[Rfam]
RNA sequence: GACCGCGUGAACUCACUCAACCUGGGUGUGAUGCUUGCCCGUGAAAUUGAACAGGGCCCUUGCGGUCAUCACAACCUUUUUGAGUGAGC
Numbered sequence: 001g002a003c004c005g006c007g008u009g010a011a012c013u014c015a016c017u018c019a020a021c022c023u024g025g026g027u028g029u030g031a032u033g034c035u036u037g038c039c040c041g042u043g044a045a046a047u048u049g050a051a052c053a054g055g056g057c058c059c060u061u062g063c064g065g066u067c068a069u070c071a072c073a074a075c076c077u078u079u080u081u082g083a084g085u086g087a088g089c
Stems, first nucleotide, its partner, number of pairs: 012088009024076002027073007
The record is an 89-nucleotide RNA from Nasonia vitripennis, which matches "mir-67 microRNA precursor family" in Rfam.
It is one of the family's seed sequences.
A reference for the family is Cao et al. (2008), "Identification of conserved microRNAs in Bombyx mori (silkworm) and regulation of fibroin L chain production by microRNAs in heterologous system", Insect Biochem Mol Biol.
The family's consensus secondary structure was predicted with RNAalifold.